[Rfam]
RNA sequence: CAGAAACAGGGGUUUCUUUCAGUUCAAAUGAAGCAAAAUGGAAGUUUGUAUUUGCUUGGUGUUUAAUUUGGACUGAAGGGAGCUCCUAAUUCUU
Numbered sequence: 001c002a003g004a005a006a007c008a009g010g011g012g013u014u015u016c017u018u019u020c021a022g023u024u025c026a027a028a029u030g031a032a033g034c035a036a037a038a039u040g041g042a043a044g045u046u047u048g049u050a051u052u053u054g055c056u057u058g059g060u061g062u063u064u065a066a067u068u069u070g071g072a073c074u075g076a077a078g079g080g081a082g083c084u085c086c087u088a089a090u091u092c093u094u
Stems, first nucleotide, its partner, number of pairs: 008087011021074002024071005
Dot-bracket structure: .......(((((((((((..((.(((((......................................))))).))..))))))))))).......

A member of the RNA family "MIR319 microRNA precursor family" from Dendrobium catenatum, 94 nucleotides long. Taxonomically the source falls in Dendrobium (Eukaryota, Streptophyta, Liliopsida, Dendrobiinae). Rfam links the family to the GO terms miRNA-mediated post-transcriptional gene silencing and RISC complex. The base pairs follow the family's consensus structure, which was predicted with RNAalifold.